[Rfam]
RNA sequence: GACUCCCGUGCCUACUGAGCUGAUAAUUGGUGGUUAAGUUUUCACCUGGCUCAGUUCAGCAGGACAGGAG
Numbered sequence: 001g002a003c004u005c006c007c008g009u010g011c012c013u014a015c016u017g018a019g020c021u022g023a024u025a026a027u028u029g030g031u032g033g034u035u036a037a038g039u040u041u042u043c044a045c046c047u048g049g050c051u052c053a054g055u056u057c058a059g060c061a062g063g064a065c066a067g068g069a070g
Stems, first nucleotide, its partner, number of pairs: 003070004008065002011063003015059009027049004
Rfam assigns this 70-nucleotide sequence from Eleutherodactylus coqui to the family "mir-24 microRNA precursor family". Taxonomically the source falls in Eleutherodactylus (Eukaryota, Craniata, Gnathostomata, Eleutherodactylidae). Rfam describes the family as follows. This family represents the microRNA (miRNA) mir-24 family. miRNAs are transcribed as ~70nt precursors (modelled here) and subsequently processed by the Dicer enzyme to give a ~22nt product. In this case the mature sequence comes from the 3' arm of the precursor. The extents of the hairpin precursors are not generally known and are estimated based on hairpin prediction. The products are thought to have regulatory roles through complementarity to mRNA. The involvement of Dicer in miRNA processing suggests a relationship with the phenomenon of RNA interference. miRNAs are numbered based on the sequence of the mature RNA. miR-24 has been identified in human and mouse. The family's consensus secondary structure was predicted with RNAalifold.